[Rfam]
This 71-nucleotide RNA sequence from Danio rerio belongs to the Rfam family "Small nucleolar RNA SNORD2".
A search with the family's covariance model found it, with a score of 58 bits.
Pairs were carried over by alignment from the consensus structure, which was predicted with WAR.
Gene Ontology terms of the family: RNA processing and nucleolus.
Rfam classes the family as a C/D-box small nucleolar RNA.
A reference for the family is Zhou et al. (2004), "Identification of a novel box C/D snoRNA from mouse nucleolar cDNA library", Gene.
Lineage of the source: Eukaryota > Deuterostomia > Vertebrata > Cyprinoidei > Danio.
RNA sequence: GUAUGAAAUGAUGGUAUGACUAUCUUUCGGGACUGACCUUUUGUGGAGAAGACCUUUUCAACUGAUCAUAC
Numbered sequence: 001g002u003a004u005g006a007a008a009u010g011a012u013g014g015u016a017u018g019a020c021u022a023u024c025u026u027u028c029g030g031g032a033c034u035g036a037c038c039u040u041u042u043g044u045g046g047a048g049a050a051g052a053c054c055u056u057u058u059c060a061a062c063u064g065a066u067c068a069u070a071c
Stems, first nucleotide, its partner, number of pairs: 001071006